Annotation
RydC RNA: a 66-nucleotide sequence from Salmonella enterica.
[Rfam]
RNA sequence: CUUCCGAUGUAGACCCGUCCUCCUUCGCCUGCGUCACGGGUCCUGGUUAGACGCAGGCGUUUUCUG
Number, nucleotide and partner (000 for none) at each position: 001c000002u000003u000004c000005c000006g000007a000008u000009g000010u000011a044012g042013a041014c040015c039016c038017g037018u036019c000020c000021u000022c000023c000024u000025u000026c059027g058028c057029c056030u055031g054032c053033g052034u051035c000036a018037c017038g016039g015040g014041u013042c012043c000044u011045g000046g000047u000048u000049a000050g000051a034052c033053g032054c031055a030056g029057g028058c027059g026060u000061u000062u000063u000064c000065u000066g000
By type it is a small RNA. A reference for the family is Antal et al. (2005), "A small bacterial RNA regulates a putative ABC transporter", J Biol Chem.